[Rfam]
RNA sequence: UUUGCAUUCAUGAAGACAGAAGCAAAAACUAUAACCUAGGGGCUUCUGUUGGAUAUAAAGCAAC
Numbered sequence: 001u002u003u004g005c006a007u008u009c010a011u012g013a014a015g016a017c018a019g020a021a022g023c024a025a026a027a028a029c030u031a032u033a034a035c036c037u038a039g040g041g042g043c044u045u046c047u048g049u050u051g052g053a054u055a056u057a058a059a060g061c062a063a064c
Stems, first nucleotide, its partner, number of pairs: 002063004015050009029039003
RNA: Selenocysteine insertion sequence 1